[Rfam]
Nucleotides: 084
Stems, first nucleotide, its partner, number of pairs: 023032002047061006
Number, partner (000 for none) and nucleotide at each position: 001000u002000a003000a004000u005000g006000g007000a008000u009000a010000c011000g012000a013000a014000a015000a016000g017000a018000g019000g020000a021000g022000u023032u024031g025000c026000g027000c028000u029000a030000a031024c032023a033000a034000c035000u036000c037000c038000c039000c040000u041000a042000a043000c044000a045000g046000c047061a048060c049059c050058g051057u052056u053000u054000a055000a056052g057051a058050c059049g060048g061047u062000g063000a064000c065000c066000a067000g068000c069000u070000u071000a072000a073000u074000a075000u076000u077000a078000u079000u080000u081000u082000u083000g084000a